Shown here is a 140-nucleotide RNA sequence from Nannospalax galili, a member of the family "Small nucleolar RNA SNORA8". Pairs were carried over by alignment from the consensus structure, which was predicted with RNAfold. From the family's description: ACA8 is a member of the H/ACA class of snoRNA that guide the sites of modification of uridines to pseudouridines. By type it is an H/ACA-box small nucleolar RNA. It scores 111 bits against the family's covariance model. Gene Ontology terms of the family: nucleolus and RNA processing.
RNA sequence: UGCACUGCGUGGUAUAUGCACUCAACAGCUCCCUCCUGCUGAUGUGUUCAUAGAACAGUGCGAUAGAAAUUCACUAUCUGGCAUCGCUGGUUUUCUUAGCUUUGGUGCCUAUUAAACCUGGUAUUUCCAAUGAAACAGUU
Numbered sequence: 001u002g003c004a005c006u007g008c009g010u011g012g013u014a015u016a017u018g019c020a021c022u023c024a025a026c027a028g029c030u031c032c033c034u035c036c037u038g039c040u041g042a043u044g045u046g047u048u049c050a051u052a053g054a055a056c057a058g059u060g061c062g063a064u065a066g067a068a069a070u071u072c073a074c075u076a077u078c079u080g081g082c083a084u085c086g087c088u089g090g091u092u093u094u095c096u097u098a099g100c101u102u103u104g105g106u107g108c109c110u111a112u113u114a115a116a117c118c119u120g121g122u123a124u125u126u127c128c129a130a131u132g133a134a135a136c137a138g139u140u
Stems, first nucleotide, its partner, number of pairs: 002061006015054001017052001018047004024040001026038003064129001066127005071121003080109005